[Rfam]
t44 RNA: a 106-nucleotide sequence from Actinobacillus indolicus.
By type it is a small RNA.
The organism belongs to Actinobacillus, within Bacteria.
This family consists of a number of bacterial RNA genes of between 135 and 170 bases in length. The t44 gene has been identified in several species of enteric bacteria but homologs have also been identified in Pseudomonas and Coxiella species.

RNA sequence: UUUUUAUUUACACUAAAUCACACACAUAUCGCAAACUAAACAUCGGGGUGCUGUUUUAUUCUAUUAAGAAAAACGGUCGAUGGCUUAGGGUAUGUGGAGGCAAAAC
Numbered sequence: 001u002u003u004u005u006a007u008u009u010a011c012a013c014u015a016a017a018u019c020a021c022a023c024a025c026a027u028a029u030c031g032c033a034a035a036c037u038a039a040a041c042a043u044c045g046g047g048g049u050g051c052u053g054u055u056u057u058a059u060u061c062u063a064u065u066a067a068g069a070a071a072a073a074c075g076g077u078c079g080a081u082g083g084c085u086u087a088g089g090g091u092a093u094g095u096g097g098a099g100g101c102a103a104a105a106c
Base pairs, nucleotide, nucleotide: 023096024095025094026093027092028091029090030089037087038086039085041083042081043080044079045078050077051076052075053074054073055072056071057070